[Rfam]
Shown here is an 84-nucleotide sequence from Chlorocebus sabaeus, a member of the family "mir-548 microRNA precursor family". The literature on the family includes a 2010 paper in Blood by Jima et al., "Deep sequencing of the small RNA transcriptome of normal and malignant human B cells identifies hundreds of novel microRNAs". Pairs were carried over by alignment from the consensus structure, which was predicted with WAR. Its family is annotated with miRNA-mediated post-transcriptional gene silencing and RISC complex in the Gene Ontology.
RNA sequence: UAUAUAGUUGAUGCAAAAGUAAUUGCGGUUUUUGCCAUUACUUUUAAUGGCAAAAACCGCAAUUACUUUUGCACCAACUACAUA
Numbered sequence: 001u002a003u004a005u006a007g008u009u010g011a012u013g014c015a016a017a018a019g020u021a022a023u024u025g026c027g028g029u030u031u032u033u034g035c036c037a038u039u040a041c042u043u044u045u046a047a048u049g050g051c052a053a054a055a056a057c058c059g060c061a062a063u064u065a066c067u068u069u070u071g072c073a074c075c076a077a078c079u080a081c082a083u084a
Stems, first nucleotide, its partner, number of pairs: 001084003005080006012073029